[Rfam]
RNA sequence: UGGCGCCCAACGUGGGGCUGGAUACUGGGGGCACAUCGUGAGGGAGGACGGAAAAAGGAAGGAGUGCACUUGCUAAAUCUCAAGGAAUUCGGAGACACGCCGCAGGAGCCUGCCAUGACCGAACCGAAAGUAAGUCAAUCCGUCUGAUCAUGGGGAAAGGAUUAAGCCAGCACCAGAUUUAUGUUACGCAGUUGAGGGAGGCUCUCAAGACAAGAGGAGUAAAGGUUAAGACUGUGGAUUUAUUUCAUUUCUUUGAUUUGUGAUGGACAUUUGUCCUU
Numbered sequence: 001u002g003g004c005g006c007c008c009a010a011c012g013u014g015g016g017g018c019u020g021g022a023u024a025c026u027g028g029g030g031g032c033a034c035a036u037c038g039u040g041a042g043g044g045a046g047g048a049c050g051g052a053a054a055a056a057g058g059a060a061g062g063a064g065u066g067c068a069c070u071u072g073c074u075a076a077a078u079c080u081c082a083a084g085g086a087a088u089u090c091g092g093a094g095a096c097a098c099g100c101c102g103c104a105g106g107a108g109c110c111u112g113c114c115a116u117g118a119c120c121g122a123a124c125c126g127a128a129a130g131u132a133a134g135u136c137a138a139u140c141c142g143u144c145u146g147a148u149c150a151u152g153g154g155g156a157a158a159g160g161a162u163u164a165a166g167c168c169a170g171c172a173c174c175a176g177a178u179u180u181a182u183g184u185u186a187c188g189c190a191g192u193u194g195a196g197g198g199a200g201g202c203u204c205u206c207a208a209g210a211c212a213a214g215a216g217g218a219g220u221a222a223a224g225g226u227u228a229a230g231a232c233u234g235u236g237g238a239u240u241u242a243u244u245u246c247a248u249u250u251c252u253u254u255g256a257u258u259u260g261u262g263a264u265g266g267a268c269a270u271u272u273g274u275c276c277u278u
Stems, first nucleotide, its partner, number of pairs: 006030003012025003036048002039045001088132001090130001098121002101117002105113001139157001141155001143154004164205001166202003213254008223241005263278001265276004
Record summary: Shown here is a 278-nucleotide RNA from Nannospalax galili, a member of the family "Mason-Pfizer monkey virus packaging signal". Rfam links the family to the GO term viral genome packaging. About the family: This family represents a group of sequences that are related to the Mason-Pfizer monkey virus (MPMV) packaging signal. The packaging signal is located in the 5' UTR and is required for specific RNA encapsidation. Pairs were carried over by alignment from the consensus structure, which was predicted with PFOLD. By type it is a cis-regulatory element.